[Rfam]
RNA sequence: CUGCAAAGAUGAAACCACUGAACUCUCUCUUUCUGAUGGUUAAGUGUAGAAACCCUGAAUGAGAUUCUGAGUGGC
Numbered sequence: 001c002u003g004c005a006a007a008g009a010u011g012a013a014a015c016c017a018c019u020g021a022a023c024u025c026u027c028u029c030u031u032u033c034u035g036a037u038g039g040u041u042a043a044g045u046g047u048a049g050a051a052a053c054c055c056u057g058a059a060u061g062a063g064a065u066u067c068u069g070a071g072u073g074g075c
Stems, first nucleotide, its partner, number of pairs: 001074004

The record is a 75-nucleotide RNA from Apteryx australis, which matches "Small nucleolar RNA SNORD26" in Rfam. Rfam classes the family as a C/D-box small nucleolar RNA. Gene Ontology terms of the family: nucleolus and RNA processing. For this family Rfam cites "A mammalian gene with introns instead of exons generating stable RNA products" (Tycowski et al., Nature, 1996). It scores 62 bits against the family's covariance model. The source organism's lineage runs through Eukaryota, Sauria, Saurischia, Coelurosauria and Apteryx.